[Rfam]
RNA sequence: GAAUUUUGGAUUAACGCCCGUUUAAACCCGGGCCUUGUGGAAG
Numbered sequence: 001g002a003a004u005u006u007u008g009g010a011u012u013a014a015c016g017c018c019c020g021u022u023u024a025a026a027c028c029c030g031g032g033c034c035u036u037g038u039g040g041a042a043g
Stems, first nucleotide, its partner, number of pairs: 016033005

Rfam assigns this 43-nucleotide RNA sequence from Dendroctonus ponderosae to the family "nuoG RNA".
The organism belongs to Dendroctonus, within Eukaryota.
It is annotated as a cis-regulatory element.